Shown here is a 162-nucleotide RNA sequence from Clostridium cadaveris, a member of the family "M-box riboswitch aptamer (ykoK leader)". M-box riboswitch, also know as ykoK leader is described as a metaloregulatory RNA that sense divalent metals and function as a genetic control element of genes related to divalent metal transport in bacteria. It was first reported upstream of the B.subtilis ykoK gene and genes with related functions in other bacteria. The organism belongs to Clostridium, within Bacteria. A reference for the family is Barrick et al. (2004), "New RNA motifs suggest an expanded scope for riboswitches in bacterial genetic control", Proc Natl Acad Sci U S A.
RNA sequence: AUAAAACCUCGGUAGGUGAGGUUACUACAAGGAUACGGGUUGAUGCCGUGAAAGAAUGGAAACAUUUUUAACAGGUUAGCAGGUUUGGCCGAACAAAGAAGGCUUAAUCUAAUUCAACUUCAUUGCCUUGCAGAGCCAAAACUUGAACGAAACGUAUUUUUA
Numbered sequence: 001a002u003a004a005a006a007c008c009u010c011g012g013u014a015g016g017u018g019a020g021g022u023u024a025c026u027a028c029a030a031g032g033a034u035a036c037g038g039g040u041u042g043a044u045g046c047c048g049u050g051a052a053a054g055a056a057u058g059g060a061a062a063c064a065u066u067u068u069u070a071a072c073a074g075g076u077u078a079g080c081a082g083g084u085u086u087g088g089c090c091g092a093a094c095a096a097a098g099a100a101g102g103c104u105u106a107a108u109c110u111a112a113u114u115c116a117a118c119u120u121c122a123u124u125g126c127c128u129u130g131c132a133g134a135g136c137c138a139a140a141a142c143u144u145g146a147a148c149g150a151a152a153c154g155u156a157u158u159u160u161u162a
Stems, first nucleotide, its partner, number of pairs: 005158002009154001011148001013100001015143003020137003025133002028130005039118005046074001048072002055066004082109004088103003